mir-9223 microRNA precursor family: a 75-nucleotide sequence from Cnephaeus nilssonii. Lineage of the source: Eukaryota > Opisthokonta > Eumetazoa > Gnathostomata > Cnephaeus. The family has 9 seed sequences and 14,641 matches in Rfam 15.1. It scores 82 bits against the family's covariance model. Rfam links the family to the GO terms miRNA-mediated post-transcriptional gene silencing and RISC complex.

[Rfam]
RNA sequence: GGCGGUUCUCAGGUGAUGCACCCUGGAAUUGGGCUCCCUCCUCUCUGAUUCCAGGUGCAUCACCUAAGAACCUCA
Dot-bracket structure: .(..(((((.(((((((.((((..(((((((((..........))))))))).)))).))))))).)))))..).